[Rfam]
RNA sequence: CAUGUUGCGAACUGUUGCGCACCCUCCUAUAUCUCCGGUGCCGGGUUCGCCCGGCUAUGGUGAUAAAUGAUGUCGUGACAUAGACGCAGCGGACCCGGGGGCAGUACCCGGCGGCUCCACCAUCAUCGGCGCACCCGACCCUAGACGGGCGGCGCCGAUUGUGACGGGGCCGAACUAGGAUCGACGUGUGUUGAAAGACGAUAUUUUUGCCCGGCCUGAUUGAGCCGUAAAACCGAUCACAACCACAAGUGCUAACGACAACGAGGCACUCGCGAUUGCUGCGUAACUAAGUCCUAACGGACGAAGUUAAACAGACAAAAGCGCGGUUGGGGCCGCACCGGGCAACAGAAGCGGACACC
Numbered sequence: 001c002a003u004g005u006u007g008c009g010a011a012c013u014g015u016u017g018c019g020c021a022c023c024c025u026c027c028u029a030u031a032u033c034u035c036c037g038g039u040g041c042c043g044g045g046u047u048c049g050c051c052c053g054g055c056u057a058u059g060g061u062g063a064u065a066a067a068u069g070a071u072g073u074c075g076u077g078a079c080a081u082a083g084a085c086g087c088a089g090c091g092g093a094c095c096c097g098g099g100g101g102c103a104g105u106a107c108c109c110g111g112c113g114g115c116u117c118c119a120c121c122a123u124c125a126u127c128g129g130c131g132c133a134c135c136c137g138a139c140c141c142u143a144g145a146c147g148g149g150c151g152g153c154g155c156c157g158a159u160u161g162u163g164a165c166g167g168g169g170c171c172g173a174a175c176u177a178g179g180a181u182c183g184a185c186g187u188g189u190g191u192u193g194a195a196a197g198a199c200g201a202u203a204u205u206u207u208u209g210c211c212c213g214g215c216c217u218g219a220u221u222g223a224g225c226c227g228u229a230a231a232a233c234c235g236a237u238c239a240c241a242a243c244c245a246c247a248a249g250u251g252c253u254a255a256c257g258a259c260a261a262c263g264a265g266g267c268a269c270u271c272g273c274g275a276u277u278g279c280u281g282c283g284u285a286a287c288u289a290a291g292u293c294c295u296a297a298c299g300g301a302c303g304a305a306g307u308u309a310a311a312c313a314g315a316c317a318a319a320a321g322c323g324c325g326g327u328u329g330g331g332g333c334c335g336c337a338c339c340g341g342g343c344a345a346c347a348g349a350a351g352c353g354g355a356c357a358c359c
Stems, first nucleotide, its partner, number of pairs: 040055005059211005070204007085190003089187003095111005112172007212227004217239003221236001324340004330356001333353001
Dot-bracket structure: .......................................(((((......)))))...(((((......(((((((........(((.(((...(((((.......)))))(((((((...............................................)))))))............)))))).......)))))))..)))))((((.[[[.[..))))........]]]]....................................................................................((((..[..[...))))............]..]...
The record is a 359-nucleotide RNA sequence from Sphingomonas prati, which matches "Alphaproteobacteria transfer-messenger RNA" in Rfam. Gene Ontology term of the family: RNA catabolic process. The base pairs follow the family's consensus structure, which is taken from published work. It scores 225 bits against the family's covariance model. NCBI's taxonomy places the organism under Bacteria, Pseudomonadati, Pseudomonadota, Alphaproteobacteria, Sphingomonas.